RNA sequence: UUGCUGUGAUGUUUUAAAAUCAACACAUUAUUCUUACUGUAAAGUGAAGAAACAUUAAAAAAAUCACUGAGCAAA
Numbered sequence: 001u002u003g004c005u006g007u008g009a010u011g012u013u014u015u016a017a018a019a020u021c022a023a024c025a026c027a028u029u030a031u032u033c034u035u036a037c038u039g040u041a042a043a044g045u046g047a048a049g050a051a052a053c054a055u056u057a058a059a060a061a062a063a064u065c066a067c068u069g070a071g072c073a074a075a
Stems, first nucleotide, its partner, number of pairs: 001074004

Overview
Shown here is a 75-nucleotide RNA from Astyanax mexicanus, a member of the family "Small nucleolar RNA SNORD63". It is annotated as a C/D-box small nucleolar RNA. A reference for the family is Galardi et al. (2002), "Purified box C/D snoRNPs are able to reproduce site-specific 2'-O-methylation of target RNA in vitro", Mol Cell Biol. The source organism's lineage runs through Eukaryota, Craniata, Clupeocephala, Acestrorhamphidae and Astyanax. The match comes from Rfam's covariance-model search (46 bits). snoRNA U63 is found in both humans and mice. The family's consensus secondary structure was predicted with PFOLD. Its family is annotated with nucleolus and RNA processing in the Gene Ontology.